This 88-nucleotide RNA from Anaerococcus tetradius belongs to the Rfam family "Group II catalytic intron D1-D4-1".
For this family Rfam cites "Group II introns: structure and catalytic versatility of large natural ribozymes" (Lehmann and Schmidt, Crit Rev Biochem Mol Biol, 2003).
[Rfam]
RNA sequence: AGGUCUCACUAGCGAAACAGUAGUAACAACGAAUAGUGAGAAGUCAGCAGAAGUCAUAGUACUAGAAAGCAAAUUUUCUAGGAAGGAC
Numbered sequence: 001a002g003g004u005c006u007c008a009c010u011a012g013c014g015a016a017a018c019a020g021u022a023g024u025a026a027c028a029a030c031g032a033a034u035a036g037u038g039a040g041a042a043g044u045c046a047g048c049a050g051a052a053g054u055c056a057u058a059g060u061a062c063u064a065g066a067a068a069g070c071a072a073a074u075u076u077u078c079u080a081g082g083a084a085g086g087a088c
Stems, first nucleotide, its partner, number of pairs: 002030001004028001006026001008024004044051002053088003062081006